RNA sequence: GCUGGCUGGCGUAGCGCCCAGCUGUAACCCUGCGUUUGGGGGGCUUGGACAUUGAACGGCCUAUUGUACGGGGUUAACUGGAGGGGUCCUACUGAUUUAGGUGGUGCCUUAGCAUGCGGAUUGUCAACAAGGGCUGAUCUGCGUAAGCGAUCGGUCCUGGUUGUUAGAGAGACGUCCACCAGGCCAGGCAGGAAACUGAGCAACCGAUAGCGUCCGCAGUCUUCAGUGCUAAGAUUACAACGCCGUUCGGAGGGCCUCACAGCCUGUAUGAGAAGCUGAACCUUGUCCUUU
Numbered sequence: 001g002c003u004g005g006c007u008g009g010c011g012u013a014g015c016g017c018c019c020a021g022c023u024g025u026a027a028c029c030c031u032g033c034g035u036u037u038g039g040g041g042g043g044c045u046u047g048g049a050c051a052u053u054g055a056a057c058g059g060c061c062u063a064u065u066g067u068a069c070g071g072g073g074u075u076a077a078c079u080g081g082a083g084g085g086g087u088c089c090u091a092c093u094g095a096u097u098u099a100g101g102u103g104g105u106g107c108c109u110u111a112g113c114a115u116g117c118g119g120a121u122u123g124u125c126a127a128c129a130a131g132g133g134c135u136g137a138u139c140u141g142c143g144u145a146a147g148c149g150a151u152c153g154g155u156c157c158u159g160g161u162u163g164u165u166a167g168a169g170a171g172a173c174g175u176c177c178a179c180c181a182g183g184c185c186a187g188g189c190a191g192g193a194a195a196c197u198g199a200g201c202a203a204c205c206g207a208u209a210g211c212g213u214c215c216g217c218a219g220u221c222u223u224c225a226g227u228g229c230u231a232a233g234a235u236u237a238c239a240a241c242g243c244c245g246u247u248c249g250g251a252g253g254g255c256c257u258c259a260c261a262g263c264c265u266g267u268a269u270g271a272g273a274a275g276c277u278g279a280a281c282c283u284u285g286u287c288c289u290u291u
Stems, first nucleotide, its partner, number of pairs: 001044003004023006028041003047288005054281001057278004062273001064271009078262003083257003087254004094247003100244004105239002108233007115225002118222007125163004130158010141148002164168001171214005182205002189198003